[Rfam]
RNA sequence: CGAUGUAAGAAAGGUCCAACCUCACAUGUCCGGUGUUAAUGAAGAAAGGCUGUGUGAGGUUAGACCUAUCCCGCAUGG
Dot-bracket structure: (..(((..((.(((((..(((.((((((.((................)).)))))).)))..))))).))..)))..)
A member of the RNA family "mir-2188 microRNA precursor family" from Bagarius yarrelli, 78 nucleotides long. The family has 8 seed sequences and 525 matches in Rfam 15.1. Lineage of the source: Eukaryota > Vertebrata > Otomorpha > Siluroidei > Bagarius.